[Rfam]
Nucleotides: 365
Stems, first nucleotide, its partner, number of pairs: 001361010011350001012316007020038008043348003047345005052209004059251004064205005069083005085099001086097004100200002105198002107194003121140002123136005148166006168189001169187002172185005213273004222264006243255004280299008
Number, partner (000 for none) and nucleotide at each position: 001361c002360a003359g004358g005357u006356c007355g008354g009353u010352c011350g012316g013315g014314c015313g016312g017311u018310c019000g020038c021037g022036g023035c024034c025033c026032u027031g028000g029000u030000a031027c032026a033025g034024g035023g036022u037021c038020g039000a040000g041000g042000a043348a044347a045346g046000u047345c048344c049343g050342c051341g052209c053208u054207c055206c056000a057000c058000a059251g060250g061249g062248c063000a064205g065204g066203g067202u068201g069083c070082c071081g072080g073079g074000u075000a076000a077000c078000a079073c080072c081071c082070g083069g084000g085099g086097c087096g088095c089094c090000g091000u092000a093000a094089g095088g096087u097086g098000c099085c100200g101199g102000a103000c104000a105198g106197g107194g108193c109192c110000a111000c112000a113000g114000a115000a116000a117000c118000a119000u120000a121140c122139c123136g124135c125134c126133u127132c128000g129000g130000a131000u132127g133126a134125g135124g136123u137000a138000a139122g140121g141000g142000u143000g144000a145000a146000a147000u148166g149165g150164u151163g152162g153161u154000g155000u156000a157000a158000g159000a160000g161153a162152c163151c164150a165149c166148c167000g168189g169187c170186g171000a172185g173184c174183g175182c176181a177000g178000u179000a180000a181176u182175g183174c184173g185172c186170c187169g188000g189168c190000c191000a192109g193108g194107c195000a196000a197106c198105c199101c200100c201068c202067a203066c204065c205064c206055g207054g208053a209052g210000c211000a212000a213273g214272g215271c216270c217000a218000a219000g220000c221000a222264g223263g224262g225261a226260c227259c228000a229000u230000c231000c232000c233000u234000u235000c236000g237000g238000g239000g240000u241000a242000a243255g244254g245253g246252c247000g248062g249061c250060c251059c252246g253245u254244c255243c256000a257000a258000g259227g260226g261225u262224c263223c264222c265000g266000g267000g268000u269000a270216g271215g272214c273213c274000g275000c276000u277000a278000g279000a280299g281298c282297c283296g284295c285294c286293g287292g288000g289000a290000g291000a292287c293286c294285g295284g296283u297282g298281g299280c300000c301000c302000a303000g304000a305000g306000a307000g308000a309000u310018g311017a312016c313015c314014g315013c316012c317000c318000a319000u320000c321000u322000c323000c324000u325000u326000c327000g328000g329000g330000a331000g332000u333000g334000g335000a336000c337000a338000g339000a340000a341051c342050g343049c344048g345047g346045c347044u348043u349000a350011u351000a352010g353009a354008c355007c356006g357005g358004c359003c360002u361001g362000g363000g364000u365000g
Record summary:
Shown here is a 365-nucleotide RNA from Anaerolinea thermolimosa, a member of the family "Bacterial RNase P class A". Lineage of the source: Bacteria > Bacillati > Anaerolineae > Anaerolineales > Anaerolinea. It is annotated as a ribozyme. Clan: RNaseP clan.